Annotation: Shown here is a 232-nucleotide sequence from Medicago truncatula, a member of the family "MIR2655 microRNA precursor family". A search with the family's covariance model found it, with a score of 200 bits. NCBI's taxonomy places the organism under Eukaryota, Spermatophyta, rosids, fabids, Medicago.
RNA sequence: CCCAUAAGUAAUAAAAGAUCCGUUUAAGUCCCUUAACUUUAUUUAAGUAUCAGUUUGGUCCUUUUUGUUAAUUCAAUUCAAAAAAUGUUAAAAUUUGGUCCCUUAACUUAUUUAAUUAGUAUUAGUUUGGUCCUAAACUUAACGCUUUUUUGAAUUAAAUUAACAGAAAUGACCAAACUGAUACUUUAAAUAAAGUUAAGGGACCUAAACAGACCUUUUAUUAUUUAUGGGA
Numbered sequence: 001c002c003c004a005u006a007a008g009u010a011a012u013a014a015a016a017g018a019u020c021c022g023u024u025u026a027a028g029u030c031c032c033u034u035a036a037c038u039u040u041a042u043u044u045a046a047g048u049a050u051c052a053g054u055u056u057g058g059u060c061c062u063u064u065u066u067g068u069u070a071a072u073u074c075a076a077u078u079c080a081a082a083a084a085a086u087g088u089u090a091a092a093a094u095u096u097g098g099u100c101c102c103u104u105a106a107c108u109u110a111u112u113u114a115a116u117u118a119g120u121a122u123u124a125g126u127u128u129g130g131u132c133c134u135a136a137a138c139u140u141a142a143c144g145c146u147u148u149u150u151u152g153a154a155u156u157a158a159a160u161u162a163a164c165a166g167a168a169a170u171g172a173c174c175a176a177a178c179u180g181a182u183a184c185u186u187u188a189a190a191u192a193a194a195g196u197u198a199a200g201g202g203a204c205c206u207a208a209a210c211a212g213a214c215c216u217u218u219u220a221u222u223a224u225u226u227a228u229g230g231g232a
Base pairs, nucleotide, nucleotide: 002230003229004228005227006226007225008224023209024208025207028204029203031201032200033199034198035197036196037195038194039193040192041191042190043189045186046185